[Rfam]
RNA: Small nucleolar RNA Z199
Organism: Arabis nemorensis
RNA sequence: GAUCAGUUGAUAAGCAAAGACUGCAACAAUAUGACGGAGAAAUUCUUUGUGAUUCUUAGUAUUUAAGUCUCUGAUGAUC
Numbered sequence: 001g002a003u004c005a006g007u008u009g010a011u012a013a014g015c016a017a018a019g020a021c022u023g024c025a026a027c028a029a030u031a032u033g034a035c036g037g038a039g040a041a042a043u044u045c046u047u048u049g050u051g052a053u054u055c056u057u058a059g060u061a062u063u064u065a066a067g068u069c070u071c072u073g074a075u076g077a078u079c
Base pairs, nucleotide, nucleotide: 001078003077004076005075036048037047038046039045040044
Dot-bracket structure: (.(((..............................(((((...)))))..........................)))).